[Rfam]
RNA sequence: CGAGGUCCCGCAAUGGCACUGCAUGAAUUCACGGUUAUUAUUCAGGGCCGUGCAUCCAGUAGUUCCAUACCGGGCUAGGCUAG
Number, nucleotide and partner (000 for none) at each position: 001c000002g000003a000004g000005g000006u000007c074008c073009c072010g071011c000012a000013a068014u067015g066016g065017c000018a063019c062020u061021g060022c059023a000024u000025g056026a055027a000028u054029u000030c052031a000032c050033g049034g048035u044036u000037a000038u000039u000040a000041u000042u000043c000044a035045g000046g000047g000048c034049c033050g032051u000052g030053c000054a028055u026056c025057c000058a000059g022060u021061a020062g019063u018064u000065c016066c015067a014068u013069a000070c000071c010072g009073g008074g007075c000076u000077a000078g000079g000080c000081u000082a000083g000
RNA: mir-228 microRNA precursor family
Organism: Dictyocaulus viviparus